Shown here is a 202-nucleotide RNA sequence from Medicago truncatula, a member of the family "MIR2670 microRNA precursor family". Rfam links the family to the GO terms RISC complex and miRNA-mediated post-transcriptional gene silencing. NCBI's taxonomy places the organism under Eukaryota, Streptophytina, Tracheophyta, Fabaceae, Medicago.
RNA sequence: UGGAGGAAGUAGUGGUCUGUUAGGUUGGGGAAAAAGACAUCAUCCCUUGAGGUAAAAUUAGGUUUGCUUCCAUUUACUUCCAAAAUCUUUUUACCAUGGGUAAAAAGAAUCAUCAUGGGGGUAUAAAAGGAACCAAAUUUAAAUUUAACUCAAGGGGUCUUGAUGUCGUUUUUCCCAACAUAACAGAUCACUAUUUUCCCCA
Number, nucleotide and partner (000 for none) at each position: 001u202002g201003g200004a000005g198006g197007a196008a195009g194010u193011a192012g191013u190014g189015g188016u187017c186018u185019g184020u183021u182022a000023g000024g179025u178026u177027g176028g175029g174030g173031a172032a171033a170034a000035a000036g000037a000038c000039a164040u163041c162042a161043u157044c156045c155046c000047u153048u152049g151050a150051g149052g000053u147054a146055a145056a144057a000058u142059u141060a140061g139062g138063u137064u136065u135066g134067c000068u132069u131070c130071c129072a000073u127074u126075u123076a122077c121078u120079u119080c118081c117082a116083a000084a000085a000086u000087c107088u106089u105090u104091u103092u102093a101094c100095c099096a000097u000098g000099g095100g094101u093102a092103a091104a090105a089106a088107g087108a000109a000110u000111c000112a000113u000114c000115a000116u082117g081118g080119g079120g078121g077122u076123a075124u000125a000126a074127a073128a000129g071130g070131a069132a068133c000134c066135a065136a064137a063138u062139u061140u060141a059142a058143a000144u056145u055146u054147a053148a000149c051150u050151c049152a048153a047154g000155g045156g044157g043158u000159c000160u000161u042162g041163a040164u039165g000166u000167c000168g000169u000170u033171u032172u031173u030174c029175c028176c027177a026178a025179c024180a000181u000182a021183a020184c019185a018186g017187a016188u015189c014190a013191c012192u011193a010194u009195u008196u007197u006198c005199c000200c003201c002202a001
The family's consensus secondary structure was predicted with RNAalifold.